The family of this 205-nucleotide sequence from Sorghum bicolor is "MIR6217 microRNA precursor family". It scores 144 bits against the family's covariance model. Its family is annotated with miRNA-mediated post-transcriptional gene silencing and RISC complex in the Gene Ontology. The organism belongs to Sorghum, within Eukaryota.
RNA sequence: UGGCUACAAAAUAACUUAUUUUGUAGCCACUUUGAGUUACGAUAAUUACUAUAUUAAUUUAUAAGAUUAUAGUAACUCCUUACUAAGUGGUUUACUAAACAUUACGGUAAAUAUCUCUAUGUGUUAUAGUAACCCAACUAUCGUAAAUUAGUAUAUAAAAUUAUCGUAAAUGGAGGUGGCUACAGAAUAACAUAUUUUGUAGCUA
Numbered sequence: 001u002g003g004c005u006a007c008a009a010a011a012u013a014a015c016u017u018a019u020u021u022u023g024u025a026g027c028c029a030c031u032u033u034g035a036g037u038u039a040c041g042a043u044a045a046u047u048a049c050u051a052u053a054u055u056a057a058u059u060u061a062u063a064a065g066a067u068u069a070u071a072g073u074a075a076c077u078c079c080u081u082a083c084u085a086a087g088u089g090g091u092u093u094a095c096u097a098a099a100c101a102u103u104a105c106g107g108u109a110a111a112u113a114u115c116u117c118u119a120u121g122u123g124u125u126a127u128a129g130u131a132a133c134c135c136a137a138c139u140a141u142c143g144u145a146a147a148u149u150a151g152u153a154u155a156u157a158a159a160a161u162u163a164u165c166g167u168a169a170a171u172g173g174a175g176g177u178g179g180c181u182a183c184a185g186a187a188u189a190a191c192a193u194a195u196u197u198u199g200u201a202g203c204u205a
Stems, first nucleotide, its partner, number of pairs: 001205013016190018037169011050155013065142003072138002092136001093131005098125005106116002